[Rfam]
The family of this 179-nucleotide RNA from Amycolatopsis endophytica is "Actinobacteria sRNA Ms_IGR-5".
RNA sequence: ACACGGGAAAGGAGGUGGUCCAAAGUUGUGUAGCAACGGGACUCGUGAGGUGGCUGUCCGCUAGCGGAUGCCACACCCUGGACUGCUGGUGAAUACCAGACAGCCACCGCCCCCCGGUGUUUCCGAGCACUGGUCCGGCUCGGGCCCGAACGGCUGACGACGGUCGGGAGUCGCACCGG
Numbered sequence: 001a002c003a004c005g006g007g008a009a010a011g012g013a014g015g016u017g018g019u020c021c022a023a024a025g026u027u028g029u030g031u032a033g034c035a036a037c038g039g040g041a042c043u044c045g046u047g048a049g050g051u052g053g054c055u056g057u058c059c060g061c062u063a064g065c066g067g068a069u070g071c072c073a074c075a076c077c078c079u080g081g082a083c084u085g086c087u088g089g090u091g092a093a094u095a096c097c098a099g100a101c102a103g104c105c106a107c108c109g110c111c112c113c114c115c116g117g118u119g120u121u122u123c124c125g126a127g128c129a130c131u132g133g134u135c136c137g138g139c140u141c142g143g144g145c146c147c148g149a150a151c152g153g154c155u156g157a158c159g160a161c162g163g164u165c166g167g168g169a170g171u172c173g174c175a176c177c178g179g
Stems, first nucleotide, its partner, number of pairs: 014058006059091007067083001108173002111170001113168005119161003123143006
It is annotated as a small RNA. The source organism's lineage runs through Bacteria, Actinomycetota, Actinomycetes, Pseudonocardiaceae and Amycolatopsis. A reference for the family is Li et al. (2013), "Identification of small RNAs in Mycobacterium smegmatis using heterologous Hfq", RNA. The base pairs follow the family's consensus structure.